[Rfam]
RNA sequence: AUGGACCUGAGGAUACUUUCCCUAAAUUAUCGACUAUGACUAAACAAUGCAAAUGUAAUCCCAUCAGGAUUCCAAGCCAGAAAUCUGGUCCAU
Number, nucleotide and partner (000 for none) at each position: 001a093002u092003g091004g090005a089006c000007c000008u000009g000010a000011g000012g000013a000014u000015a000016c000017u000018u000019u000020c000021c000022c000023u000024a000025a000026a000027u000028u000029a000030u000031c000032g000033a000034c000035u000036a000037u000038g000039a000040c000041u000042a000043a000044a000045c000046a000047a000048u000049g000050c000051a000052a000053a000054u000055g000056u000057a000058a000059u000060c000061c000062c000063a000064u000065c000066a000067g000068g000069a000070u000071u000072c000073c000074a000075a000076g000077c000078c000079a000080g000081a000082a000083a000084u000085c000086u000087g000088g000089u005090c004091c003092a002093u001
The record is a 93-nucleotide sequence from Hordeum vulgare, which matches "Small nucleolar RNA Z103" in Rfam.